[Rfam]
RNA sequence: UGGUGGCUAGGAAACGAGAGGUUGCGACACGCCAGGCCGCUUUGCCAUGGCCGAGCCUGUCGGAAAAUUUUCGUGGAGCUAUGUCUACUUUUAAAAUAGGCGAAGGAGGGAAAAUAAUGGCAA
Numbered sequence: 001u002g003g004u005g006g007c008u009a010g011g012a013a014a015c016g017a018g019a020g021g022u023u024g025c026g027a028c029a030c031g032c033c034a035g036g037c038c039g040c041u042u043u044g045c046c047a048u049g050g051c052c053g054a055g056c057c058u059g060u061c062g063g064a065a066a067a068u069u070u071u072c073g074u075g076g077a078g079c080u081a082u083g084u085c086u087a088c089u090u091u092u093a094a095a096a097u098a099g100g101c102g103a104a105g106g107a108g109g110g111a112a113a114a115u116a117a118u119g120g121c122a123a
Stems, first nucleotide, its partner, number of pairs: 014074003018071004025062005082122004
S10-Clostridia ribosomal protein leader: a 123-nucleotide RNA sequence from Tetragenococcus muriaticus.
The base pairs follow the family's consensus structure, which is taken from published work.
By type it is a cis-regulatory leader.
NCBI's taxonomy places the organism under Bacteria, Bacillota, Bacilli, Lactobacillales, Tetragenococcus muriaticus.